[Rfam]
RNA: S10-Clostridia ribosomal protein leader
RNA sequence: AAAAGGCGAUGAAGCGAAAGGUUGCUGAAACACCCGGCCCCUUUGCCAUGGCGGGUACUUCAGGCUAAAUUUUCGUGGAGAAUGUCUGUUACUAAAAUAGGCGA
Number, nucleotide and partner (000 for none) at each position: 001a000002a000003a000004a000005g000006g000007c000008g000009a000010u000011g000012a000013a000014g076015c075016g074017a000018a073019a072020g071021g070022u000023u000024g000025c063026u062027g061028a060029a059030a000031c000032a000033c000034c000035c000036g000037g000038c000039c000040c000041c000042u000043u000044u000045g000046c000047c000048a000049u000050g000051g000052c000053g000054g000055g000056u000057a000058c000059u029060u028061c027062a026063g025064g000065c000066u000067a000068a000069a000070u021071u020072u019073u018074c016075g015076u014077g000078g000079a000080g000081a000082a000083u000084g000085u104086c103087u000088g102089u101090u100091a000092c000093u000094a000095a000096a000097a000098u000099a000100g090101g089102c088103g086104a085